[Rfam]
RNA: Small nucleolar RNA SNORA53
Organism: Python bivittatus
RNA sequence: AACAUGCUCCCUUAGAUCCAUCUUUGUUUGGUGUCUCUGCUGAGUUCUGCUUAUACAUUUUGUCAUAAGUAGCUCCAGCUAAGAGGGAUCAGCAACUUUAUGGUUGCACAGUCAAAGAUGCUUGAGUCAUUGGCAUGUAAGAAUAAUAUACCUUCAUUCUAGCUGGUUAUAUUCUGAUAGAAAUGGCUGUACUGUAUGUCAUUUUCUCCUAUCAGAAUUUGGCUGGAAUGUGGACAUU
Number, nucleotide and partner (000 for none) at each position: 001a000002a138003c137004a136005u135006g134007c133008u132009c000010c000011c126012u125013u124014a123015g122016a000017u000018c000019c120020a119021u118022c117023u116024u115025u114026g113027u000028u000029u091030g090031g089032u088033g000034u000035c000036u084037c083038u082039g079040c078041u077042g076043a000044g075045u000046u000047c072048u071049g070050c069051u000052u000053a066054u000055a063056c062057a000058u000059u000060u000061u000062g056063u055064c000065a000066u053067a000068a000069g050070u049071a048072g047073c000074u000075c044076c042077a041078g040079c039080u000081a000082a038083g037084a036085g000086g000087g000088a032089u031090c030091a029092g107093c106094a105095a104096c103097u102098u000099u000100a000101u000102g097103g096104u095105u094106g093107c092108a000109c000110a000111g000112u000113c026114a025115a024116a023117g022118a021119u020120g019121c000122u015123u014124g013125a012126g011127u000128c000129a000130u000131u000132g008133g007134c006135a005136u004137g003138u002139a000140a000141g000142a000143a000144u000145a000146a000147u000148a000149u000150a000151c000152c233153u232154u000155c230156a229157u000158u000159c226160u000161a224162g223163c222164u221165g000166g000167u000168u000169a000170u000171a000172u000173u216174c215175u214176g213177a212178u211179a210180g209181a000182a000183a000184u000185g207186g206187c000188u000189g000190u000191a000192c000193u000194g000195u000196a000197u000198g000199u000200c000201a000202u000203u000204u000205u000206c186207u185208c000209c180210u179211a178212u177213c176214a175215g174216a173217a000218u000219u000220u000221g164222g163223c162224u161225g000226g159227a000228a000229u156230g155231u000232g153233g152234a000235c000236a000237u000238u000